[Rfam]
RNA sequence: GCUGACAGCCCAGAGGCCAUACCAGAAGUGCUCAUGGCAUGGCCUGUCAAAUUCCAGUGAAUUUGUGAAUUAUGCU
Numbered sequence: 001g002c003u004g005a006c007a008g009c010c011c012a013g014a015g016g017c018c019a020u021a022c023c024a025g026a027a028g029u030g031c032u033c034a035u036g037g038c039a040u041g042g043c044c045u046g047u048c049a050a051a052u053u054c055c056a057g058u059g060a061a062u063u064u065g066u067g068a069a070u071u072a073u074g075c076u
Stems, first nucleotide, its partner, number of pairs: 015044004021076001023074002026071002028040003048065007
RNA: Mammalian CPEB3 ribozyme